[Rfam]
The family of this 93-nucleotide RNA sequence from Desulfotomaculum nigrificans is "Selenocysteine transfer RNA". The family has 109 seed sequences and 4,211 matches in Rfam 15.1. Rfam links the family to the GO term triplet codon-amino acid adaptor activity.
RNA sequence: GGGGAGUACGGGGAUGGUUCCCCCUGUGGGCUGCAAACCCACGAGCCGGCCUGUGACCCAGGUUGGAGUCCGGUUCGAUUCCGACUACUCCCC
Numbered sequence: 001g002g003g004g005a006g007u008a009c010g011g012g013g014a015u016g017g018u019u020c021c022c023c024c025u026g027u028g029g030g031c032u033g034c035a036a037a038c039c040c041a042c043g044a045g046c047c048g049g050c051c052u053g054u055g056a057c058c059c060a061g062g063u064u065g066g067a068g069u070c071c072g073g074u075u076c077g078a079u080u081c082c083g084a085c086u087a088c089u090c091c092c093c
Stems, first nucleotide, its partner, number of pairs: 001093008010023005025044001026042005046066005069084001071083003